RNA sequence: CAUUUAUCAAGAGCCGGGGGAAAGAGUUGGCUUUGUGAUCCCGGCACCAACCUGGCGCUAUGGCGUCAAGGUGGUCCAGCCGACAGCGAUGAAGG
Number, nucleotide and partner (000 for none) at each position: 001c095002a000003u093004u092005u091006a090007u089008c088009a000010a000011g000012a000013g045014c000015c043016g042017g041018g040019g000020g000021a000022a033023a032024g031025a000026g000027u083028u082029g081030g080031c024032u023033u022034u000035g000036u000037g000038a000039u000040c018041c017042c016043g015044g000045c013046a075047c074048c073049a072050a000051c071052c070053u000054g067055g066056c065057g064058c000059u000060a000061u000062g000063g000064c057065g056066u055067c054068a000069a000070g052071g051072u049073g048074g047075u046076c000077c000078a000079g087080c030081c029082g028083a027084c000085a000086g000087c079088g008089a007090u006091g005092a004093a003094g000095g001